[Rfam]
RNA: c-di-GMP-I riboswitch aptamer
Organism: Virgibacillus sp. MSP4-1
RNA sequence: UAUCAUGAAAGGCAAAUCUAACUGAAAAGAAGGGGCGCAAAGUUACAGGCCUAAGGUGUACAAACUAUGGUGGCUGGGCUGCUGAA
Numbered sequence: 001u002a003u004c005a006u007g008a009a010a011g012g013c014a015a016a017u018c019u020a021a022c023u024g025a026a027a028a029g030a031a032g033g034g035g036c037g038c039a040a041a042g043u044u045a046c047a048g049g050c051c052u053a054a055g056g057u058g059u060a061c062a063a064a065c066u067a068u069g070g071u072g073g074c075u076g077g078g079c080u081g082c083u084g085a086a
Stems, first nucleotide, its partner, number of pairs: 012038002017033003022029002041080004046076003049071003056065002